[Rfam]
RNA sequence: UCCUCUGUAGUUCAGUCGGUAGAACGGCGGACUGUUAAUCCGUAUGUCACUGGUUCGAGUCCAGUCAGAGGAG
Numbered sequence: 001u002c003c004u005c006u007g008u009a010g011u012u013c014a015g016u017c018g019g020u021a022g023a024a025c026g027g028c029g030g031a032c033u034g035u036u037a038a039u040c041c042g043u044a045u046g047u048c049a050c051u052g053g054u055u056c057g058a059g060u061c062c063a064g065u066c067a068g069a070g071g072a073g
Base pairs, nucleotide, nucleotide: 001072002071003070004069005068006067007066010025011024012023013022027043028042029041030040031039049065050064051063052062053061